The family of this 105-nucleotide RNA from Paraglaciecola hydrolytica is "Alpha operon ribosome binding site".
It is annotated as a cis-regulatory element.
The source organism's lineage runs through Bacteria, Pseudomonadati, Gammaproteobacteria, Alteromonadaceae and Paraglaciecola.
The bacterial alpha operon ribosome binding site is surrounded by this complex pseudoknotted structure. Translation of the mRNA produces 4 ribosomal protein products, one of which (S4) acts as a translational repressor by binding to the nested pseudoknot region.
Gene Ontology term of the family: ribosome binding.
The match comes from Rfam's covariance-model search (82 bits).
RNA sequence: CAAUUUAGUCGUUGGGUAAGUAUCCUAUCGGGCUUUUUAGGCCGACGACAAUAACUAAGAGGAGUACUGUUAAUGGCCCGUAUCGCUGGCAUUAACAUCCCUGAG
Numbered sequence: 001c002a003a004u005u006u007a008g009u010c011g012u013u014g015g016g017u018a019a020g021u022a023u024c025c026u027a028u029c030g031g032g033c034u035u036u037u038u039a040g041g042c043c044g045a046c047g048a049c050a051a052u053a054a055c056u057a058a059g060a061g062g063a064g065u066a067c068u069g070u071u072a073a074u075g076g077c078c079c080g081u082a083u084c085g086c087u088g089g090c091a092u093u094a095a096c097a098u099c100c101c102u103g104a105g
Base pairs, nucleotide, nucleotide: 004053006051008049009048010047011046012045013044024089025088029080030079031078032077037104038103039102